[Rfam]
RNA sequence: AAAAUAAGAGAUAAAAACACAGUUCCGUUGGUAGUCGGAACCUAUAUGUCGUUUUUAAUAUAUAGUUAAAAAUGAUAAAGUAGCAGUAACCUGCCCUCCUGGGUUGUCCAUUCUCUUAAAGGUUAAU
Numbered sequence: 001a002a003a004a005u006a007a008g009a010g011a012u013a014a015a016a017a018c019a020c021a022g023u024u025c026c027g028u029u030g031g032u033a034g035u036c037g038g039a040a041c042c043u044a045u046a047u048g049u050c051g052u053u054u055u056u057a058a059u060a061u062a063u064a065g066u067u068a069a070a071a072a073u074g075a076u077a078a079a080g081u082a083g084c085a086g087u088a089a090c091c092u093g094c095c096c097u098c099c100u101g102g103g104u105u106g107u108c109c110a111u112u113c114u115c116u117u118a119a120a121g122g123u124u125a126a127u
Stems, first nucleotide, its partner, number of pairs: 005118007022041006042083004093104004
This 127-nucleotide RNA from Clostridium argentinense belongs to the Rfam family "azaaromatic riboswitch aptamer (yjdF RNA)".
Pairs were carried over by alignment from the consensus structure, which is taken from published work.